[Rfam]
RNA: Group II catalytic intron D1-D4-3
RNA sequence: UCCAUGGCGACAUGGAAUCUGAAGGAAGCCCUAGGCAAAUCCUUGGUCUGAGGUAUACGAAUCACAUUAGAGGUCGUUAUUUUAGGACGAGUUUGCAAAACAAAACAAAGUCCAAAAUAUCCUCGGUAGAAUAGCGAUAAAUGUGGCAGAUAUAUGAGGAGAAAGUGGAUGAA
Numbered sequence: 001u002c003c004a005u006g007g008c009g010a011c012a013u014g015g016a017a018u019c020u021g022a023a024g025g026a027a028g029c030c031c032u033a034g035g036c037a038a039a040u041c042c043u044u045g046g047u048c049u050g051a052g053g054u055a056u057a058c059g060a061a062u063c064a065c066a067u068u069a070g071a072g073g074u075c076g077u078u079a080u081u082u083u084a085g086g087a088c089g090a091g092u093u094u095g096c097a098a099a100a101c102a103a104a105a106c107a108a109a110g111u112c113c114a115a116a117a118u119a120u121c122c123u124c125g126g127u128a129g130a131a132u133a134g135c136g137a138u139a140a141a142u143g144u145g146g147c148a149g150a151u152a153u154a155u156g157a158g159g160a161g162a163a164a165g166u167g168g169a170u171g172a173a
Base pairs, nucleotide, nucleotide: 001016002015003014004013005012006011030171032169035166036165040160041159042158043157044156045155046151047150048149049148050147062146063145064144065143066142067141073138074137075136077134078133079132080131081130082129083128085113086112087111088110091106092105093104094103